[Rfam]
RNA sequence: GCCUGGUGGUUCCUUGAAGCCGCUCGUCUGUGCUGUUCAUCAAGGUUGUAUUUCACAGGCCGAUAGUAACGUCUUCAGUUUAAUGCUUGGGGGUUGCCUGCCUCUGUGACUUCCAAAGCCCGGCUGGAGAAACAUUC
Numbered sequence: 001g002c003c004u005g006g007u008g009g010u011u012c013c014u015u016g017a018a019g020c021c022g023c024u025c026g027u028c029u030g031u032g033c034u035g036u037u038c039a040u041c042a043a044g045g046u047u048g049u050a051u052u053u054c055a056c057a058g059g060c061c062g063a064u065a066g067u068a069a070c071g072u073c074u075u076c077a078g079u080u081u082a083a084u085g086c087u088u089g090g091g092g093g094u095u096g097c098c099u100g101c102c103u104c105u106g107u108g109a110c111u112u113c114c115a116a117a118g119c120c121c122g123g124c125u126g127g128a129g130a131a132a133c134a135u136u137c
Stems, first nucleotide, its partner, number of pairs: 001060004007050002012045006019036002022033002073129001075127006085119002087116004092111006
The record is a 137-nucleotide sequence from Ameiurus melas, which matches "Small nucleolar RNA SNORA84" in Rfam.
The match comes from Rfam's covariance-model search (64 bits).
Lineage of the source: Eukaryota > Bilateria > Deuterostomia > Osteoglossocephalai > Ameiurus.
By type it is an H/ACA-box small nucleolar RNA.
Gene Ontology terms of the family: RNA processing and nucleolus.